The record is a 55-nucleotide RNA from Clostridium aminobutyricum, which matches "Na+ riboswitch aptamer (DUF1646)" in Rfam.
The organism belongs to Clostridium, within Bacteria.
Rfam links the family to the GO terms sodium ion binding and regulation of gene expression.
It scores 60 bits against the family's covariance model.
Pairs were carried over by alignment from the consensus structure, which is taken from published work.
[Rfam]
RNA sequence: GGUUGGGAAAUAGAAAUAUUUCUUUCAAGAGAUUAAGCUUUUGGGGUGGAAAGCU
Numbered sequence: 001g002g003u004u005g006g007g008a009a010a011u012a013g014a015a016a017u018a019u020u021u022c023u024u025u026c027a028a029g030a031g032a033u034u035a036a037g038c039u040u041u042u043g044g045g046g047u048g049g050a051a052a053g054c055u
Stems, first nucleotide, its partner, number of pairs: 003028003006023006036055007